[Rfam]
RNA sequence: AAUGGUGAGUAGUCGCGGUUCCUUUUACGGAGCUGAGGAAAGUCCAGGCUCGCACAGUGCUGAGAUGCCUGUAGUGUUCGUGCCAUUCGCAAGAGUGGGCAGUCGUACAAGUUCGACUGACGGCGGUGAAAUCAUGCUAAGUCCAACUGGAUAUGCUGAGAAUAACCUGAAAGUGCCACAGUGACGAGGCUUUUCUGGAAACAGAAAAGGUGGAACGGGUAAACCCCACGAGCGAGUAACCCAAAUUUAGGUAGGGGCAUCAUCCUGCGGGAAAUGAACUUAACGGAUGAAUCGAUCUUUGGUCGAUAGAUAGAUGACUACAAUUUCUAGUACUAGGCUUGCCGCCGUUUGCAGUACGGAAAUACAAAACCUGGCUUACAGCC
Dot-bracket structure: ...((((.((((((.((((((........))))))....[[[.[[[[[(((((((((.((......)))))).....(((((((((((....))))))(((((((........)))))).)((.(((.....((.((...(((......)))..))))......))).....(((((............((((((((....))))))))........)))..))))))))))))))...(((...........)))...((((((...................))))))((((((.....))))))........))))))..(((((.((((....................))))))))).......]]]]]]]].).)))
Rfam assigns this 383-nucleotide RNA sequence from Bacillus sp. MUM 116 to the family "Bacterial RNase P class B". NCBI's taxonomy places the organism under Bacteria, Bacillati, Bacillota, Bacilli, Bacillus. Rfam classes the family as a ribozyme. The family is grouped with related families in Rfam's "RNaseP clan".